[Rfam]
RNA sequence: AACUUUGUACAGUGGUAGUAUCAUAGUCAAUGAGGUUUAUUCAACAUGCGAUUAUUGCUAACUGAAAACUUUUCCCAAUACCCCAUCAUGACGACUUGACAUAUAGUCAGCAUUGGCAAUUUUUGACAGUCUCUAUAGAGA
Numbered sequence: 001a002a003c004u005u006u007g008u009a010c011a012g013u014g015g016u017a018g019u020a021u022c023a024u025a026g027u028c029a030a031u032g033a034g035g036u037u038u039a040u041u042c043a044a045c046a047u048g049c050g051a052u053u054a055u056u057g058c059u060a061a062c063u064g065a066a067a068a069c070u071u072u073u074c075c076c077a078a079u080a081c082c083c084c085a086u087c088a089u090g091a092c093g094a095c096u097u098g099a100c101a102u103a104u105a106g107u108c109a110g111c112a113u114u115g116g117c118a119a120u121u122u123u124u125g126a127c128a129g130u131c132u133c134u135a136u137a138g139a140g141a
Base pairs, nucleotide, nucleotide: 020052021051022050024048026047027046034042035041086116087115088113089112090111093108094107095106096105130141131140132139133138